Overview
Shown here is a 78-nucleotide sequence from Rhamnella rubrinervis, a member of the family "Small nucleolar RNA snoR53Y". NCBI's taxonomy places the organism under Eukaryota, Mesangiospermae, rosids, Rhamnaceae, Rhamnella. For this family Rfam cites "Multiple snoRNA gene clusters from Arabidopsis" (Brown et al., RNA, 2001).
[Rfam]
RNA sequence: GUUCCCUGUGAUGCUAUAAGUGAACCAUGCUAAUGCUGACUACGGUAUGAUUAAUCCUUUUAAUGUUCUGAGGGAACU
Numbered sequence: 001g002u003u004c005c006c007u008g009u010g011a012u013g014c015u016a017u018a019a020g021u022g023a024a025c026c027a028u029g030c031u032a033a034u035g036c037u038g039a040c041u042a043c044g045g046u047a048u049g050a051u052u053a054a055u056c057c058u059u060u061u062a063a064u065g066u067u068c069u070g071a072g073g074g075a076a077c078u
Base pairs, nucleotide, nucleotide: 001077002076003075004074005073006072007071